[Rfam]
RNA sequence: UCGCUUUGAGCGCCGUAGGCAGGAGCGGGGGACCCAAGGUAAGCGCCGCGUCACGCGGCUAGGGGUGAAGCCGCACUCGGGAGAGUGCGGCCGGGCAACCACAUCGGCCCGAACCCGACAGCUCACCUCGCAGGCGUCGGUGAGGGGAUCU
Numbered sequence: 001u002c003g004c005u006u007u008g009a010g011c012g013c014c015g016u017a018g019g020c021a022g023g024a025g026c027g028g029g030g031g032a033c034c035c036a037a038g039g040u041a042a043g044c045g046c047c048g049c050g051u052c053a054c055g056c057g058g059c060u061a062g063g064g065g066u067g068a069a070g071c072c073g074c075a076c077u078c079g080g081g082a083g084a085g086u087g088c089g090g091c092c093g094g095g096c097a098a099c100c101a102c103a104u105c106g107g108c109c110c111g112a113a114c115c116c117g118a119c120a121g122c123u124c125a126c127c128u129c130g131c132a133g134g135c136g137u138c139g140g141u142g143a144g145g146g147g148a149u150c151u
Stems, first nucleotide, its partner, number of pairs: 011136004025131006035062001063116003071090008093110004
Notes
Rfam assigns this 151-nucleotide RNA to the family "c-di-AMP riboswitch aptamer (ydaO/yuaA leader)".